MIR2593 microRNA precursor family: a 115-nucleotide sequence from Medicago truncatula.

RNA sequence: AUGUAAGCAACUUUUCACUUUUUAGGUUCAUUCAAUAAAUGAUGCAUGUGGUCCAUAUUAUAGACCGCAUACAUCAUUUAUUGAAUGAACCUAAAAAGUAAAAAGUUGCUUACAU
Number, nucleotide and partner (000 for none) at each position: 001a000002u114003g113004u112005a111006a110007g109008c000009a107010a106011c105012u104013u103014u000015u101016c000017a099018c098019u097020u096021u095022u094023u093024a092025g091026g000027u089028u088029c087030a086031u085032u084033c083034a082035a081036u080037a079038a078039a077040u076041g075042a074043u073044g072045c000046a000047u000048g000049u067050g066051g065052u064053c000054c000055a000056u000057a000058u000059u000060a000061u000062a000063g000064a052065c051066c050067g049068c000069a000070u000071a000072c044073a043074u042075c041076a040077u039078u038079u037080a036081u035082u034083g033084a032085a031086u030087g029088a028089a027090c000091c025092u024093a023094a022095a021096a020097a019098g018099u017100a000101a015102a000103a013104a012105g011106u010107u009108g000109c007110u006111u005112a004113c003114a002115u000
Background
Rfam 15.1 lists 1,262 matches to the family in 6 species. Its family is annotated with RISC complex and miRNA-mediated post-transcriptional gene silencing in the Gene Ontology.